[Rfam]
RNA: Lysine riboswitch aptamer
RNA sequence: UUUAAAUCUAGAGGUAGCGAUGCAAAUGAGUAGUAAGUCGAGUCGGCAGACAUUGACACUUACGAAAGGUAAUCAUCGCCGAAUAAUGAUUGUUGGCAAACAUUCAUUAUGGGGUUGUAUGAAAGACAUACAACACUCCUUCGAAAGAAGAGGAGCUAUCACUUGU
Numbered sequence: 001u002u003u004a005a006a007u008c009u010a011g012a013g014g015u016a017g018c019g020a021u022g023c024a025a026a027u028g029a030g031u032a033g034u035a036a037g038u039c040g041a042g043u044c045g046g047c048a049g050a051c052a053u054u055g056a057c058a059c060u061u062a063c064g065a066a067a068g069g070u071a072a073u074c075a076u077c078g079c080c081g082a083a084u085a086a087u088g089a090u091u092g093u094u095g096g097c098a099a100a101c102a103u104u105c106a107u108u109a110u111g112g113g114g115u116u117g118u119a120u121g122a123a124a125g126a127c128a129u130a131c132a133a134c135a136c137u138c139c140u141u142c143g144a145a146a147g148a149a150g151a152g153g154a155g156c157u158a159u160c161a162c163u164u165g166u
Stems, first nucleotide, its partner, number of pairs: 009158003017079006025070001033063006040057001083110007091102004111137002114134008139150004
Dot-bracket structure: ........(((.....((((((..(.......((((((.(................)))))))......)...))))))...(((((((.((((....)))).)))))))((.((((((((.....)))))))).)).((((....)))).....)))........